The family of this 133-nucleotide RNA from Bombycilla garrulus is "Small nucleolar RNA SNORA8". Lineage of the source: Eukaryota > Dipnotetrapodomorpha > Coelurosauria > Bombycillidae > Bombycilla. The family's consensus secondary structure was predicted with RNAfold. Rfam describes the family as follows. ACA8 is a member of the H/ACA class of snoRNA that guide the sites of modification of uridines to pseudouridines.

[Rfam]
RNA sequence: AGGGUUACAGUACCUGCACCCAGCAGGCUUUUCUCAGAUGUUCAAAAAGUAGUGCUACACCAGUGCAGCUUUUGGCAUCCUUGGUUUUCAUUCUGCUGUGACUCUUAAACUUAGUACUUCUGCUGAAACAGUC
Numbered sequence: 001a002g003g004g005u006u007a008c009a010g011u012a013c014c015u016g017c018a019c020c021c022a023g024c025a026g027g028c029u030u031u032u033c034u035c036a037g038a039u040g041u042u043c044a045a046a047a048a049g050u051a052g053u054g055c056u057a058c059a060c061c062a063g064u065g066c067a068g069c070u071u072u073u074g075g076c077a078u079c080c081u082u083g084g085u086u087u088u089c090a091u092u093c094u095g096c097u098g099u100g101a102c103u104c105u106u107a108a109a110c111u112u113a114g115u116a117c118u119u120c121u122g123c124u125g126a127a128a129c130a131g132u133c
Base pairs, nucleotide, nucleotide: 002055004053005052006051007050014049015046016041017040018039020037022034023033025031026030058122059121062118063117064116067112068111074102076100077099078098

Its family is annotated with RNA processing and nucleolus in the Gene Ontology. A search with the family's covariance model found it, with a score of 42 bits.